[Rfam]
RNA sequence: AGGUUUUGGUGAACAUUCAACGCUGUCGGUGAGUUUGGGCAGCAAUAGUAAACCACCGACCGUUGACUGUACCCUGUAACCA
Number, nucleotide and partner (000 for none) at each position: 001a000002g081003g080004u079005u078006u000007u076008g075009g000010u000011g000012a000013a000014c069015a068016u000017u066018c065019a064020a063021c062022g061023c000024u000025g060026u059027c058028g057029g056030u055031g054032a000033g053034u052035u051036u050037g000038g000039g000040c000041a000042g000043c000044a000045a000046u000047a000048g000049u000050a036051a035052a034053c033054c031055a030056c029057c028058g027059a026060c025061c022062g021063u020064u019065g018066a017067c000068u015069g014070u000071a000072c000073c000074c000075u008076g007077u000078a005079a004080c003081c002082a000
The family of this 82-nucleotide RNA from Geotrypetes seraphini is "mir-181 microRNA precursor family". Rfam links the family to the GO terms miRNA-mediated post-transcriptional gene silencing and RISC complex. The literature on the family includes a 2003 paper in RNA by Lagos-Quintana et al., "New microRNAs from mouse and human". The family's consensus secondary structure was predicted with PFOLD. Lineage of the source: Eukaryota > Eumetazoa > Chordata > Gnathostomata > Geotrypetes.